[Rfam]
RNA: uup RNA
Organism: Vibrio parahaemolyticus
RNA sequence: GAAGGCUGAACUCCGUGCAUAAAACGCGAUGAAGUGUUGCUCGGAGU
Numbered sequence: 001g002a003a004g005g006c007u008g009a010a011c012u013c014c015g016u017g018c019a020u021a022a023a024a025c026g027c028g029a030u031g032a033a034g035u036g037u038u039g040c041u042c043g044g045a046g047u
Stems, first nucleotide, its partner, number of pairs: 011046005017040003